[Rfam]
This 54-nucleotide sequence from Holzapfeliella floricola belongs to the Rfam family "Ribosomal protein L13 leader". Gene Ontology term of the family: regulation of gene expression. About the family: This family is a putative r-protein leader autoregulatory structure found in B. subtilis and other low-GC Gram-positive bacteria. It is located in the 5' untranslated regions of mRNAs encoding the L13-S9 (rplM-rpsI) ribosomal protein operon. By type it is a cis-regulatory leader. Taxonomically the source falls in Holzapfeliella floricola (Bacteria, Bacillati, Lactobacillales, Holzapfeliella).
RNA sequence: GGUAUUGUUUGUCCACGAUAAGCCCCGGAAACUUAUUGUAUUAUCAAACAUGCG
Numbered sequence: 001g002g003u004a005u006u007g008u009u010u011g012u013c014c015a016c017g018a019u020a021a022g023c024c025c026c027g028g029a030a031a032c033u034u035a036u037u038g039u040a041u042u043a044u045c046a047a048a049c050a051u052g053c054g
Stems, first nucleotide, its partner, number of pairs: 006050006015039008

The literature on the family includes a 1994 paper in Prog Nucleic Acid Res Mol Biol by Zengel and Lindahl, "Diverse mechanisms for regulating ribosomal protein synthesis in Escherichia coli".